[Rfam]
RNA sequence: GUGCUUUAGGGAUGAACAAGUCCCUAACAUUCAAUGCUUCCAUCCGAUUCACUUUGUCAGCUCUGUAUUUUCGUAUUUUGCUGAUCAUUGUAGGAUGGAAUAUUU
Numbered sequence: 001g002u003g004c005u006u007u008a009g010g011g012a013u014g015a016a017c018a019a020g021u022c023c024c025u026a027a028c029a030u031u032c033a034a035u036g037c038u039u040c041c042a043u044c045c046g047a048u049u050c051a052c053u054u055u056g057u058c059a060g061c062u063c064u065g066u067a068u069u070u071u072c073g074u075a076u077u078u079u080g081c082u083g084a085u086c087a088u089u090g091u092a093g094g095a096u097g098g099a100a101u102a103u104u105u
Stems, first nucleotide, its partner, number of pairs: 039099006056085006
Dot-bracket structure: ......................................((((((...........((((((..................))))))........))))))......

Overview: Rfam assigns this 105-nucleotide RNA sequence from Cajanus cajan to the family "Small nucleolar RNA snoR99". For this family Rfam cites "Experimental RNomics: identification of 140 candidates for small non-messenger RNAs in the plant Arabidopsis thaliana" (Marker et al., Curr Biol, 2002). Taxonomically the source falls in Cajanus (Eukaryota, Streptophyta, Embryophyta, Papilionoideae). The base pairs follow the family's consensus structure, which was predicted with WAR.